[Rfam]
RNA sequence: UGCCUAUGAUGUUUUUUCCAUGCUAAUACUGAUGCACCAGGCUGGCUCUCUGGGGCUGUUUCUGGGUGCAGCUGAGUUAAACUACUUCUCACACUGUGGAGUCUGAGGCAA
Number, nucleotide and partner (000 for none) at each position: 001u110002g109003c108004c107005u000006a000007u000008g000009a000010u000011g000012u000013u000014u000015u000016u000017u000018c000019c000020a000021u000022g000023c000024u000025a000026a000027u000028a000029c000030u000031g000032a000033u000034g000035c000036a000037c000038c000039a000040g000041g000042c000043u058044g057045g056046c055047u000048c000049u000050c000051u000052g000053g000054g000055g046056c045057u044058g043059u000060u000061u000062c000063u000064g000065g000066g000067u000068g000069c000070a000071g000072c000073u000074g000075a000076g000077u000078u000079a000080a000081a000082c000083u000084a000085c000086u000087u000088c000089u000090c000091a000092c000093a000094c000095u000096g000097u000098g000099g000100a000101g000102u000103c000104u000105g000106a000107g004108g003109c002110a001111a000

A member of the RNA family "Small nucleolar RNA U6-53/MBII-28" from Acipenser ruthenus, 111 nucleotides long.
A reference for the family is Huttenhofer et al. (2001), "RNomics: an experimental approach that identifies 201 candidates for novel, small, non-messenger RNAs in mouse", EMBO J.
Rfam 15.1 lists 780 matches to the family in 403 species.
The family's RNA type in Rfam is C/D-box small nucleolar RNA.